[Rfam]
RNA: L31-Firmicutes ribosomal protein leader
RNA sequence: CUCUGAAUCGUGAGGGAUACAAGGUUCAGGGCCGAGAGAG
Numbered sequence: 001c002u003c004u005g006a007a008u009c010g011u012g013a014g015g016g017a018u019a020c021a022a023g024g025u026u027c028a029g030g031g032c033c034g035a036g037a038g039a040g
Stems, first nucleotide, its partner, number of pairs: 001031008